This 114-nucleotide sequence belongs to the Rfam family "Potassium channel RNA editing signal". Rfam's curators put it in the seed alignment. Rfam classes the family as a cis-regulatory element.
RNA sequence: GUAGGUUAUGGAGAUAUGUCACCUGAAACAGUAGGUGGGAAACUGGUUGGGUCUCUUUGUGCCAUUGCCGGUGUGCUGACCAUCUCCUUGCCAGUGCCAGUCAUUGUAUCCAAU
Number, nucleotide and partner (000 for none) at each position: 001g114002u113003a000004g111005g110006u000007u108008a107009u106010g105011g104012a000013g102014a101015u100016a000017u000018g097019u096020c000021a095022c094023c000024u000025g000026a000027a000028a000029c000030a000031g000032u000033a000034g000035g000036u000037g077038g076039g000040a074041a000042a000043c000044u000045g000046g000047u000048u000049g063050g062051g000052u000053c000054u000055c000056u000057u000058u000059g000060u000061g000062c050063c049064a000065u000066u000067g000068c000069c000070g000071g000072u000073g000074u040075g000076c038077u037078g000079a000080c000081c000082a000083u000084c000085u000086c000087c000088u000089u000090g000091c000092c000093a000094g022095u021096g019097c018098c000099a000100g015101u014102c013103a000104u011105u010106g009107u008108a007109u000110c005111c004112a000113a002114u001
The base pairs follow the family's consensus structure, which is taken from published work.